The record is an 86-nucleotide sequence from [Pythium] brassicae, which matches "Selenocysteine transfer RNA" in Rfam.
NCBI's taxonomy places the organism under Eukaryota, Sar, Peronosporomycetes, Pythiales, Globisporangium.
The base pairs follow the family's consensus structure, which is taken from published work.
RNA sequence: GCAGGCGUGAUCUUGGCUGGUGCUGUGUGCAGACUUCAAAUCUGUAGGCCAUUCGCGUGGCAGUGGUUCGAUUCCACCUCACCUGC
Numbered sequence: 001g002c003a004g005g006c007g008u009g010a011u012c013u014u015g016g017c018u019g020g021u022g023c024u025g026u027g028u029g030c031a032g033a034c035u036u037c038a039a040a041u042c043u044g045u046a047g048g049c050c051a052u053u054c055g056c057g058u059g060g061c062a063g064u065g066g067u068u069c070g071a072u073u074c075c076a077c078c079u080c081a082c083c084u085g086c
Stems, first nucleotide, its partner, number of pairs: 001086005007080001009078001012027001014025004028046006048061005063077004